Metazoan signal recognition particle RNA: a 260-nucleotide sequence from Globodera rostochiensis. The base pairs follow the family's consensus structure, which is taken from published work. A search with the family's covariance model found it, with a score of 145 bits. About the family: The signal recognition particle (SRP) is a universally conserved ribonucleoprotein. It is annotated as a non-coding RNA gene.
RNA sequence: GCCGAGGGUCGUGGCGGGCUCUUGUGACCCAGCGAGUAGGGGGCGAAGGCGGGCGGUGGGCGGGCGUGCGCCGACCGAGUGUCGUGACCAAGGGCCGCGUCGGCAGGGGAGGCCCGGGGGAGCCGGGGCCGUCCCGGGCGCACAAUGAGGAGAGCAACGGCUCAGGCCCGCAAGGGAGCAGGCAAAAUCUCCCGCGCGGUCACAGUGGCUCCGAUAGCACUCGCGAGCACGUCACCCAAACGCCCACCGCCAAGCUUUUU
Numbered sequence: 001g002c003c004g005a006g007g008g009u010c011g012u013g014g015c016g017g018g019c020u021c022u023u024g025u026g027a028c029c030c031a032g033c034g035a036g037u038a039g040g041g042g043g044c045g046a047a048g049g050c051g052g053g054c055g056g057u058g059g060g061c062g063g064g065c066g067u068g069c070g071c072c073g074a075c076c077g078a079g080u081g082u083c084g085u086g087a088c089c090a091a092g093g094g095c096c097g098c099g100u101c102g103g104c105a106g107g108g109g110a111g112g113c114c115c116g117g118g119g120g121a122g123c124c125g126g127g128g129c130c131g132u133c134c135c136g137g138g139c140g141c142a143c144a145a146u147g148a149g150g151a152g153a154g155c156a157a158c159g160g161c162u163c164a165g166g167c168c169c170g171c172a173a174g175g176g177a178g179c180a181g182g183c184a185a186a187a188u189c190u191c192c193c194g195c196g197c198g199g200u201c202a203c204a205g206u207g208g209c210u211c212c213g214a215u216a217g218c219a220c221u222c223g224c225g226a227g228c229a230c231g232u233c234a235c236c237c238a239a240a241c242g243c244c245c246a247c248c249g250c251c252a253a254g255c256u257u258u259u260u
Stems, first nucleotide, its partner, number of pairs: 001044003004023007028041003046258005052251010062237002065231005071225001076223007083213002086211002088208003092203001094200007101140002104137001106135004111130005117124002141147002149192005160183003167176003